[Rfam]
The record is a 102-nucleotide sequence from Metabacillus sediminilitoris, which matches "Purine riboswitch aptamer" in Rfam. The family's consensus secondary structure is taken from published work. Rfam links the family to the GO term purine nucleobase biosynthetic process.
RNA sequence: AAAUUAUAAUAUUUAUUCCUUCAUAUAUACUCGAUAAUAUGGUUCGAGAGUUUCUACCGGGUAACCGAUAAUAACCUGACUAUGAAGGCAGAAUAAGUUCGU
Dot-bracket structure: .................((((((((....(((((.........))))).........(((((.(.......).)))))..))))))))..............
Numbered sequence: 001a002a003a004u005u006a007u008a009a010u011a012u013u014u015a016u017u018c019c020u021u022c023a024u025a026u027a028u029a030c031u032c033g034a035u036a037a038u039a040u041g042g043u044u045c046g047a048g049a050g051u052u053u054c055u056a057c058c059g060g061g062u063a064a065c066c067g068a069u070a071a072u073a074a075c076c077u078g079a080c081u082a083u084g085a086a087g088g089c090a091g092a093a094u095a096a097g098u099u100c101g102u
Stems, first nucleotide, its partner, number of pairs: 018088008030048005058078005064072001